Shown here is a 63-nucleotide RNA sequence from Musa balbisiana, a member of the family "Plastid-clpP 5UTR RNA". By type it is a cis-regulatory element. Plastid clpP is a non-coding RNA (ncRNA) recognised in plastids. It was found in the prime untranslated region (5UTR) of a protease complex subunit (clpP) in plastids, suggesting a posible cis-regulatory function. For this family Rfam cites "Retrograde signaling in plants: A critical review focusing on the GUN pathway and beyond" (Richter et al., Plant Commun, 2023). The source organism's lineage runs through Eukaryota, Viridiplantae, Tracheophyta, Magnoliopsida and Musa. Rfam 15.1 lists 2,105 matches to the family in 526 species.
RNA sequence: AAUUCUGUUCGUAAAACAAAGAUACAGAUCUAUCAUACCCGAUAAGUACCAAUACCAAUGGGA
Numbered sequence: 001a002a003u004u005c006u007g008u009u010c011g012u013a014a015a016a017c018a019a020a021g022a023u024a025c026a027g028a029u030c031u032a033u034c035a036u037a038c039c040c041g042a043u044a045a046g047u048a049c050c051a052a053u054a055c056c057a058a059u060g061g062g063a
Stems, first nucleotide, its partner, number of pairs: 003021002006018004038062003046055003